Overview
This 67-nucleotide RNA from Bombyx mori belongs to the Rfam family "mir-2774 microRNA precursor family". NCBI's taxonomy places the organism under Eukaryota, Aparaglossata, Glossata, Bombycidae, Bombyx. Rfam links the family to the GO terms miRNA-mediated post-transcriptional gene silencing and RISC complex. The match comes from Rfam's covariance-model search (82 bits). Pairs were carried over by alignment from the consensus structure, which was predicted with RNAalifold.
[Rfam]
RNA sequence: ACAACUUAAGGACCGUCGGUCUAUCGAGCAAUAUCACCCGCUCGGUUGAAGAUCUUCCCUUUGUAGU
Numbered sequence: 001a002c003a004a005c006u007u008a009a010g011g012a013c014c015g016u017c018g019g020u021c022u023a024u025c026g027a028g029c030a031a032u033a034u035c036a037c038c039c040g041c042u043c044g045g046u047u048g049a050a051g052a053u054c055u056u057c058c059c060u061u062u063g064u065a066g067u
Base pairs, nucleotide, nucleotide: 004064005063010058011057012056015053016052017051020049021048023046024045025044026043027042028041029040